A member of the RNA family "Small Cajal body specific RNA 6" from Perca flavescens, 280 nucleotides long. From the family's description: U88 is small Cajal body specific RNA (scaRNA). scaRNAs are a novel class of small nuclear RNAs which localise to the Cajal bodies. U88 is found associated with both fibrillarin and Gar1p and co-localises with coilin in Cajal bodies. It is annotated as a small Cajal body RNA. Rfam 15.1 lists 1,309 matches to the family in 627 species. The match comes from Rfam's covariance-model search (110 bits). The base pairs follow the family's consensus structure, which is taken from published work.
RNA sequence: GGUCGGUGAUGAGCAGUAAAAGGUCUGAUUACCCAGAAUCCUCUCCUGUGGUCCUCUGGCUCCCAGCAGCCCCAGCUCUGUUUUCCCAUCAUGCUCUAGUGGUGCAGUGGUGGUCCCGGCAGCUGCUGACAGACACAGGAAGUGACAUCACAGUGUGAGUCUGCACAGAGAGCCUGCAGGCUCAGUGUGAUGAUGACUCACUUCCAACAGAACCAAUCAGAACGGAGCGUCGGGCCGAAGGGAGAGGAGGGACAUGAUCUCAAGUUUUCAACCUGAGACC
Dot-bracket structure: ((((..............................(((.(..(((.(.(...........(((((((((((...............(((((((.(.........)..)))))))........)))))))..........((((((...........((((((((((.........))))))))))..............))))))...................)))).......).).)))..............).)))................))))